[Rfam]
RNA sequence: GUAAAGCCCAAGGUCCAAUCCCGUGAAAGCCGGGAUCGUCCCCGAAAGGGGGCGCGACGCUCACAGCUUUAGCU
Numbered sequence: 001g002u003a004a005a006g007c008c009c010a011a012g013g014u015c016c017a018a019u020c021c022c023g024u025g026a027a028a029g030c031c032g033g034g035a036u037c038g039u040c041c042c043c044g045a046a047a048g049g050g051g052g053c054g055c056g057a058c059g060c061u062c063a064c065a066g067c068u069u070u071a072g073c074u
Base pairs, nucleotide, nucleotide: 004069005068006067007066013058014057015056016029018036020034021033022032037054038053039052040051041050042049
Twister_sister_ribozyme: a 74-nucleotide RNA sequence. A reference for the family is Liu et al. (2017), "The structure of a nucleolytic ribozyme that employs a catalytic metal ion", Nat Chem Biol. The sequence is in the family's curated seed alignment.